[Rfam]
RNA sequence: CAAUGAAGGAAGCAUGAUAAUGUGCACAAAAUUGAAUUGGAUCUCUUGGCCUUCCCUCUCUGAUACCAUUUGGUUUUGAUUUGGGGGCAUGGUUUCGAAGCAAAACA
Numbered sequence: 001c002a003a004u005g006a007a008g009g010a011a012g013c014a015u016g017a018u019a020a021u022g023u024g025c026a027c028a029a030a031a032u033u034g035a036a037u038u039g040g041a042u043c044u045c046u047u048g049g050c051c052u053u054c055c056c057u058c059u060c061u062g063a064u065a066c067c068a069u070u071u072g073g074u075u076u077u078g079a080u081u082u083g084g085g086g087g088c089a090u091g092g093u094u095u096c097g098a099a100g101c102a103a104a105a106c107a
Stems, first nucleotide, its partner, number of pairs: 012025004039090001042087002049080001051078001054073002
RNA: Small nucleolar RNA snoR100